This 64-nucleotide RNA from Tropilaelaps mercedesae belongs to the Rfam family "mir-375 microRNA precursor family".
[Rfam]
RNA sequence: UCUCCCUUGAUCCCUAUGAGCAAAACUUUAAUUUGCCGUUUUGUUCGUUCGGCUCGAGUCAGAG
Numbered sequence: 001u002c003u004c005c006c007u008u009g010a011u012c013c014c015u016a017u018g019a020g021c022a023a024a025a026c027u028u029u030a031a032u033u034u035g036c037c038g039u040u041u042u043g044u045u046c047g048u049u050c051g052g053c054u055c056g057a058g059u060c061a062g063a064g
Base pairs, nucleotide, nucleotide: 001063002062003061006058007057008056009055010054012052013051017047018046020044021043022042023041025039026038
Its family is annotated with miRNA-mediated post-transcriptional gene silencing and RISC complex in the Gene Ontology. The literature on the family includes a 2005 paper in Genes Dev by Chen et al., "The developmental miRNA profiles of zebrafish as determined by small RNA cloning". The family's consensus secondary structure was predicted with RNAalifold.